[Rfam]
RNA sequence: GGUGUAAAGGGUGUGCAGGCGGAGGUCUAUGUCGGAGGUGAAAGUCGGCCGCUUAACGGUCGUCGUGCCUUCGAAACUGGAUCUCUUGAGUUCGGAAAAGGUCGGUGGAAUUCGUGGUGUAGCGGUGAAAUGCAUAGAUAUCACGAAGAACACCAGUGGCGAAAGCGGCCGGCCGGUCCGAUACUGACGCUGAGACACGAAAGCGUGGGGAGCGAACAGGAUUAGAUACCCUGGUAGUCCACGCUGUAAACGAUGCAUGCUAGUUGUUGUCCCUUCGGGGGCAGUGACGCAGUUAACGCAGUAAGCAUGCCACCUGGGGAGUACGUUCGCAAGAAUGAAACUCAAAGGAAU
Numbered sequence: 001g002g003u004g005u006a007a008a009g010g011g012u013g014u015g016c017a018g019g020c021g022g023a024g025g026u027c028u029a030u031g032u033c034g035g036a037g038g039u040g041a042a043a044g045u046c047g048g049c050c051g052c053u054u055a056a057c058g059g060u061c062g063u064c065g066u067g068c069c070u071u072c073g074a075a076a077c078u079g080g081a082u083c084u085c086u087u088g089a090g091u092u093c094g095g096a097a098a099a100g101g102u103c104g105g106u107g108g109a110a111u112u113c114g115u116g117g118u119g120u121a122g123c124g125g126u127g128a129a130a131u132g133c134a135u136a137g138a139u140a141u142c143a144c145g146a147a148g149a150a151c152a153c154c155a156g157u158g159g160c161g162a163a164a165g166c167g168g169c170c171g172g173c174c175g176g177u178c179c180g181a182u183a184c185u186g187a188c189g190c191u192g193a194g195a196c197a198c199g200a201a202a203g204c205g206u207g208g209g210g211a212g213c214g215a216a217c218a219g220g221a222u223u224a225g226a227u228a229c230c231c232u233g234g235u236a237g238u239c240c241a242c243g244c245u246g247u248a249a250a251c252g253a254u255g256c257a258u259g260c261u262a263g264u265u266g267u268u269g270u271c272c273c274u275u276c277g278g279g280g281g282c283a284g285u286g287a288c289g290c291a292g293u294u295a296a297c298g299c300a301g302u303a304a305g306c307a308u309g310c311c312a313c314c315u316g317g318g319g320a321g322u323a324c325g326u327u328c329g330c331a332a333g334a335a336u337g338a339a340a341c342u343c344a345a346a347g348g349a350a351u
Stems, first nucleotide, its partner, number of pairs: 001314003009311001011198004016192001018191003022085007031077001032074009046062006089185003092181005100174007107151001111147008122133003159166002203244006212238002217233004255310006263288011292299002316343003325336004